ffh sRNA: a 52-nucleotide sequence from Paradevosia tibetensis. It scores 55 bits against the family's covariance model. The family's RNA type in Rfam is small RNA. NCBI's taxonomy places the organism under Bacteria, Pseudomonadati, Alphaproteobacteria, Devosiaceae, Paradevosia.
[Rfam]
RNA sequence: GAGGCAGGCGGUCAGCAUCCGUCAGCGCGUUGCGCCCACGGGUGCAUUUUGG
Numbered sequence: 001g002a003g004g005c006a007g008g009c010g011g012u013c014a015g016c017a018u019c020c021g022u023c024a025g026c027g028c029g030u031u032g033c034g035c036c037c038a039c040g041g042g043u044g045c046a047u048u049u050u051g052g
Stems, first nucleotide, its partner, number of pairs: 016044007025035004